[Rfam]
Small nucleolar RNA SNORA23: a 181-nucleotide sequence from Scleropages formosus.
The family's RNA type in Rfam is H/ACA-box small nucleolar RNA.
The family's consensus secondary structure was predicted with RNAalifold.
Rfam's curators write: The members of this family belong to the H/ACA class of snoRNAs which are thought to guide the sites of modification of uridines to pseudouridines.
On this family, see Huttenhofer et al., EMBO J 2001: "RNomics: an experimental approach that identifies 201 candidates for novel, small, non-messenger RNAs in mouse".
A search with the family's covariance model found it, with a score of 119 bits.
Rfam 15.1 lists 1,092 matches to the family in 632 species.

RNA sequence: AGUGGCUGGAGUGCACGGUGUCUGUCCGUGUUUAGCGCUGCUGCCCUUCUGUGUCUUACAGUUGGUGCAGCAGUGCUCACUCCACACUUGCAGCCAUAGACACACUGGAGAUCAUAGUACUGGUCUAGUGACGUCUUCCUGACAUCCCACCACUGACCAGCCUCCAUACUCUCCUACAACA
Numbered sequence: 001a002g003u004g005g006c007u008g009g010a011g012u013g014c015a016c017g018g019u020g021u022c023u024g025u026c027c028g029u030g031u032u033u034a035g036c037g038c039u040g041c042u043g044c045c046c047u048u049c050u051g052u053g054u055c056u057u058a059c060a061g062u063u064g065g066u067g068c069a070g071c072a073g074u075g076c077u078c079a080c081u082c083c084a085c086a087c088u089u090g091c092a093g094c095c096a097u098a099g100a101c102a103c104a105c106u107g108g109a110g111a112u113c114a115u116a117g118u119a120c121u122g123g124u125c126u127a128g129u130g131a132c133g134u135c136u137u138c139c140u141g142a143c144a145u146c147c148c149a150c151c152a153c154u155g156a157c158c159a160g161c162c163u164c165c166a167u168a169c170u171c172u173c174c175u176a177c178a179a180c181a
Stems, first nucleotide, its partner, number of pairs: 013091003030082001033079001035077001036075006043068002045065002050060003107174005120160006127154004133143003
Dot-bracket structure: ............(((..............(..(.(((((((.((((...(((.....)))...)).)).)))))).).)..)......)))...............(((((........((((((.((((..(((.....))).......)))))))))).........))))).......